[Rfam]
RNA sequence: UAGAUUUGUUCUAAGUCAAACUUUAUAAAUUUGAACAAAUUUACAGAAAAAAGUAUCAACAUUCAUGACGCCAAAUCGGUAUCUCAUGAAAAUACAUGUAACAAUGAAUCUAAUAAGACUUAUUUGGUACCAUAAAUAUUUAUACUUUUUGUAUAUAAAUUUGGUUAAACUUUAUAAAGUUUGACUUGGAACAAAAAUAG
Numbered sequence: 001u002a003g004a005u006u007u008g009u010u011c012u013a014a015g016u017c018a019a020a021c022u023u024u025a026u027a028a029a030u031u032u033g034a035a036c037a038a039a040u041u042u043a044c045a046g047a048a049a050a051a052a053g054u055a056u057c058a059a060c061a062u063u064c065a066u067g068a069c070g071c072c073a074a075a076u077c078g079g080u081a082u083c084u085c086a087u088g089a090a091a092a093u094a095c096a097u098g099u100a101a102c103a104a105u106g107a108a109u110c111u112a113a114u115a116a117g118a119c120u121u122a123u124u125u126g127g128u129a130c131c132a133u134a135a136a137u138a139u140u141u142a143u144a145c146u147u148u149u150u151g152u153a154u155a156u157a158a159a160u161u162u163g164g165u166u167a168a169a170c171u172u173u174a175u176a177a178a179g180u181u182u183g184a185c186u187u188g189g190a191a192c193a194a195a196a197a198u199a200g
Stems, first nucleotide, its partner, number of pairs: 005195005011189016031169002034166002042155002045152001047149003054144003058140002061137003065133003071127006

Notes
MIR1435 microRNA precursor family: a 200-nucleotide sequence from Paspalum vaginatum.